This 237-nucleotide RNA sequence belongs to the Rfam family "RT-2 RNA". The family's consensus secondary structure is taken from published work.
Nucleotides: 237
Stems, first nucleotide, its partner, number of pairs: 004053004019041001079091003099217008108209001109173010123131002134159007177208004183203001184195002
Number, partner (000 for none) and nucleotide at each position: 001000c002000a003000c004053g005052g006051u007050c008000a009000a010000a011000u012000g013000u014000a015000g016000u017000a018000a019041c020000a021000g022000a023000a024000g025000g026000c027000a028000a029000a030000c031000g032000g033000c034000u035000u036000u037000u038000c039000a040000g041019g042000u043000g044000a045000a046000a047000g048000a049000c050007g051006a052005c053004c054000g055000a056000u057000g058000u059000a060000a061000a062000a063000g064000g065000a066000g067000u068000u069000g070000u071000a072000c073000u074000u075000c076000c077000u078000u079091g080090g081089g082000u083000u084000u085000c086000a087000a088000u089081c090080c091079c092000u093000a094000a095000a096000a097000c098000u099217g100216c101215c102214c103213u104212u105211u106210g107000a108209u109173g110172c111171c112170c113169u114168u115167g116166c117165a118164c119000g120000g121000a122000c123131g124130c125000u126000u127000c128000u129000u130124g131123c132000a133000u134159g135158g136157u137156g138155g139154g140153u141000g142000a143000u144000u145000g146000u147000g148000c149000c150000u151000u152000a153140a154139c155138c156137c157136a158135u159134u160000u161000c162000a163000u164118g165117u166116g167115u168114a169113a170112g171111g172110g173109c174000a175000a176000a177208g178207c179206a180205a181000u182000u183203u184195a185194g186000a187000c188000g189000g190000c191000a192000c193000c194185c195184u196000a197000c198000a199000a200000g201000a202000u203183a204000u205180u206179u207178g208177u209108a210106c211105g212104a213103g214102g215101g216100g217099c218000g219000a220000a221000u222000a223000c224000u225000u226000u227000u228000a229000u230000u231000a232000u233000g234000a235000c236000a237000a